[Rfam]
RNA: ASpks TB sRNA
RNA sequence: CUUCAACGAGCCCAGCCACAACGGCCGUUCGGCAGCACGACCUUGGCCGUACGUGGCAAGCAGCGCCUGGGCCUC
Dot-bracket structure: ..............(((.....))).......(....((...((..(((....)))..))...))...)......